[Rfam]
RNA sequence: AGCUCCUCAUUGCCUUUUGGCUUUGAUCAAGUGUAGUAACUGUUCUUUCUCUUUUAAUCUUGAGAAAGCCCCUACGGGGGCAGAUUACUCUUGCUUGUUUUUGGAAACCGCCUCUGGGGCGCUGGGCUCCGCUCAUCUUCAGAGGCACGGUGUCGCCUGUAUUGCACUGCUUCGGGCUGACGCGACCAUCU
Numbered sequence: 001a002g003c004u005c006c007u008c009a010u011u012g013c014c015u016u017u018u019g020g021c022u023u024u025g026a027u028c029a030a031g032u033g034u035a036g037u038a039a040c041u042g043u044u045c046u047u048u049c050u051c052u053u054u055u056a057a058u059c060u061u062g063a064g065a066a067a068g069c070c071c072c073u074a075c076g077g078g079g080g081c082a083g084a085u086u087a088c089u090c091u092u093g094c095u096u097g098u099u100u101u102u103g104g105a106a107a108c109c110g111c112c113u114c115u116g117g118g119g120c121g122c123u124g125g126g127c128u129c130c131g132c133u134c135a136u137c138u139u140c141a142g143a144g145g146c147a148c149g150g151u152g153u154c155g156c157c158u159g160u161a162u163u164g165c166a167c168u169g170c171u172u173c174g175g176g177c178u179g180a181c182g183c184g185a186c187c188a189u190c191u
Stems, first nucleotide, its partner, number of pairs: 007026003012021003047066005068081005110146008123135005150183005155177005
RNA: U2 spliceosomal RNA